[Rfam]
RNA sequence: UUGCCCAAUGAUUAUAGCAAGACGCGUUAUUACGAGGACUAAUGCUGGAACUCUUCUUAUCCUCCUCUUUUCUUCUUUGUCCCUUCUCCACUUUCACUUUAACCCUCAUUUAUCUUGGGUGUCCAGCGUCCUAUGAGCAAGAUUAUGAGAUAUGAGGGCAA
Numbered sequence: 001u002u003g004c005c006c007a008a009u010g011a012u013u014a015u016a017g018c019a020a021g022a023c024g025c026g027u028u029a030u031u032a033c034g035a036g037g038a039c040u041a042a043u044g045c046u047g048g049a050a051c052u053c054u055u056c057u058u059a060u061c062c063u064c065c066u067c068u069u070u071u072c073u074u075c076u077u078u079g080u081c082c083c084u085u086c087u088c089c090a091c092u093u094u095c096a097c098u099u100u101a102a103c104c105c106u107c108a109u110u111u112a113u114c115u116u117g118g119g120u121g122u123c124c125a126g127c128g129u130c131c132u133a134u135g136a137g138c139a140a141g142a143u144u145a146u147g148a149g150a151u152a153u154g155a156g157g158g159c160a161a
Stems, first nucleotide, its partner, number of pairs: 001161006035054003040049001